Rfam assigns this 82-nucleotide RNA sequence from Carlito syrichta to the family "Small nucleolar RNA SNORD115".
For this family Rfam cites "Identification of brain-specific and imprinted small nucleolar RNA genes exhibiting an unusual genomic organization" (Cavaille et al., Proc Natl Acad Sci U S A, 2000).
Taxonomically the source falls in Carlito (Eukaryota, Chordata, Sarcopterygii, Primates).
Rfam 15.1 lists 3,387 matches to the family in 131 species.
Gene Ontology terms of the family: nucleolus and RNA processing.
A search with the family's covariance model found it, with a score of 48 bits.

RNA sequence: GGGUCAAUGAUGAAAUAUUUGCCUUGUAUCUAGAGAGCUGUUGUCUUAAAAGUCAUGCUCAGUAAAUUCAUGCUGAGGACUC
Numbered sequence: 001g002g003g004u005c006a007a008u009g010a011u012g013a014a015a016u017a018u019u020u021g022c023c024u025u026g027u028a029u030c031u032a033g034a035g036a037g038c039u040g041u042u043g044u045c046u047u048a049a050a051a052g053u054c055a056u057g058c059u060c061a062g063u064a065a066a067u068u069c070a071u072g073c074u075g076a077g078g079a080c081u082c
Base pairs, nucleotide, nucleotide: 001082002081003080004079005075006074008072009071